RNA sequence: CCCAGGGCUGCGCCCUGGGCUACCUUACUCCGGCCCUUCGGGCCU
Numbered sequence: 001c002c003c004a005g006g007g008c009u010g011c012g013c014c015c016u017g018g019g020c021u022a023c024c025u026u027a028c029u030c031c032g033g034c035c036c037u038u039c040g041g042g043c044c045u
Base pairs, nucleotide, nucleotide: 001019002018003017004016005015006014007013008012032044033043034042035041036040
The record is a 45-nucleotide sequence from a Pirellulaceae bacterium, which matches "Acido-Lenti-1 RNA" in Rfam. Rfam classes the family as a small RNA. The base pairs follow the family's consensus structure, which is taken from published work. The match comes from Rfam's covariance-model search (49 bits).